bZIP non canonical Hac1/Xbp1 intron: a 74-nucleotide sequence from Cephus cinctus. Taxonomically the source falls in Cephus (Eukaryota, Protostomia, Dicondylia, Cephidae). It is annotated as a small RNA.

RNA sequence: GGCUGUGCUACACCUACAUCGGGAUCUGCAGAAUCCCCCAGAAACCCUCUGCCGCAGGGUGGGGUAGCACAGCC
Dot-bracket structure: (((((((..((.((......(((((.......)))))......(((((.......))))))).))..)))))))